The record is a 155-nucleotide RNA from Penicillium alfredii, which matches "A. fumigatus sRNA Afu_254" in Rfam.
The organism belongs to Penicillium, within Eukaryota.
A search with the family's covariance model found it, with a score of 89 bits.
RNA sequence: UCUGGAAUCUUUUUCUACAACAAACCAAACAACUUUUCAAGUUUUUUUUUUCAAACCUCACACUCCAUCACCAUGUCUCCCUGCUCGUGCAACUGCUGCUCCGGCAACUGCAACUCCUGCUCGUGCUCGAGCUGCACUGUAUGUUUCUCAAGCAC
Dot-bracket structure: .................................................................................((((...(((.....)))...))))...(((......((....))......)))....................